This 77-nucleotide sequence from Parambassis ranga belongs to the Rfam family "Small nucleolar RNA SNORD101". Rfam classes the family as a C/D-box small nucleolar RNA. The family's consensus secondary structure was predicted with PFOLD. The family has 26 seed sequences and 658 matches in Rfam 15.1. A reference for the family is Vitali et al. (2003), "Identification of 13 novel human modification guide RNAs", Nucleic Acids Res. Its Rfam clan is "SNORD101 clan".
RNA sequence: GCGUGAAUGAUGAUUUCCAUUCUUUUGUCGGAUACCCCUUCACUCUACAAUGAGUGAGAAAACUCAUUCUGACAUGC
Numbered sequence: 001g002c003g004u005g006a007a008u009g010a011u012g013a014u015u016u017c018c019a020u021u022c023u024u025u026u027g028u029c030g031g032a033u034a035c036c037c038c039u040u041c042a043c044u045c046u047a048c049a050a051u052g053a054g055u056g057a058g059a060a061a062a063c064u065c066a067u068u069c070u071g072a073c074a075u076g077c
Base pairs, nucleotide, nucleotide: 001077002076003075004074005073